[Rfam]
RNA sequence: CACCGAGUCCGAGGCUCCGGGACGACCGGAGCCGGGUGCAAAAGGGA
Number, nucleotide and partner (000 for none) at each position: 001c000002a000003c000004c000005g000006a000007g000008u000009c000010c000011g000012a000013g033014g032015c031016u030017c029018c028019g027020g026021g000022a000023c000024g000025a000026c020027c019028g018029g017030a016031g015032c014033c013034g000035g000036g000037u000038g000039c000040a000041a000042a000043a000044g000045g000046g000047a000